[Rfam]
RNA sequence: CGAUGAAGGAAGCAUGGUAAUAUGCAGAUAAAUUGAUUUGGGUCUGUAGGCUUGGACUCUCUGAUGUCAUUUGGCUUUGAUUUGGGGGCAUGGUUCUGUAGCAAAACG
Number, nucleotide and partner (000 for none) at each position: 001c000002g000003a000004u000005g000006a000007a000008g000009g000010a000011a000012g025013c024014a023015u022016g000017g000018u000019a000020a000021u000022a015023u014024g013025c012026a000027g000028a000029u000030a000031a000032a000033u000034u000035g000036a000037u000038u000039u000040g091041g000042g089043u088044c087045u000046g000047u000048a000049g000050g081051c000052u079053u000054g075055g000056a000057c000058u000059c000060u000061c000062u000063g000064a000065u000066g000067u000068c000069a000070u000071u000072u000073g000074g000075c054076u000077u000078u000079g052080a000081u050082u000083u000084g000085g000086g000087g044088g043089c042090a000091u040092g000093g000094u000095u000096c000097u000098g000099u000100a000101g000102c000103a000104a000105a000106a000107c000108g000
Annotation
Rfam assigns this 108-nucleotide RNA sequence from Rhododendron simsii to the family "Small nucleolar RNA snoR100". It scores 75 bits against the family's covariance model. NCBI's taxonomy places the organism under Eukaryota, Viridiplantae, Spermatophyta, asterids, Rhododendron. Rfam classes the family as an H/ACA-box small nucleolar RNA. The family has 9 seed sequences and 1,851 matches in Rfam 15.1. For this family Rfam cites "Experimental RNomics: identification of 140 candidates for small non-messenger RNAs in the plant Arabidopsis thaliana" (Marker et al., Curr Biol, 2002). Pairs were carried over by alignment from the consensus structure, which was predicted with WAR.